[Rfam]
RNA sequence: CCGGACGGAACGCCGAAUCCUGCCGCCGUCCGGGAACCCGACCCACUCACGUACGGCAGGAGCGGGGGACCCAGGUUUACUGCCGGUCCGGAAUCCGGAGCGGCUAGGGGUUAAGUCGCCAUCACGUGCGGCCGGACAUCUCCAGUCCGAACCCGACAGCUCACCUCGCAGGCGGCGGAGAGGAAAUGC
Numbered sequence: 001c002c003g004g005a006c007g008g009a010a011c012g013c014c015g016a017a018u019c020c021u022g023c024c025g026c027c028g029u030c031c032g033g034g035a036a037c038c039c040g041a042c043c044c045a046c047u048c049a050c051g052u053a054c055g056g057c058a059g060g061a062g063c064g065g066g067g068g069a070c071c072c073a074g075g076u077u078u079a080c081u082g083c084c085g086g087u088c089c090g091g092a093a094u095c096c097g098g099a100g101c102g103g104c105u106a107g108g109g110g111u112u113a114a115g116u117c118g119c120c121a122u123c124a125c126g127u128g129c130g131g132c133c134g135g136a137c138a139u140c141u142c143c144a145g146u147c148c149g150a151a152c153c154c155g156a157c158a159g160c161u162c163a164c165c166u167c168g169c170a171g172g173c174g175g176c177g178g179a180g181a182g183g184a185a186a187u188g189c
Stems, first nucleotide, its partner, number of pairs: 011174004018061008062169006072107001108154003116131004134148004
Shown here is a 189-nucleotide RNA sequence, a member of the family "c-di-AMP riboswitch aptamer (ydaO/yuaA leader)".